RNA: Small nucleolar RNA snoR109
Organism: Papaver nudicaule
RNA sequence: UGGUUGUAGCUAAAGUAAUCCAAAAACAAGAAGUUUGCUGGCCGGUUUUUGCUUUUAAUCGACAGAUCUGUUUACCGAACUUCUAACAUUU
Dot-bracket structure: ............................(((((((....(((.((((.(((........)))..)))).))).....))))))).......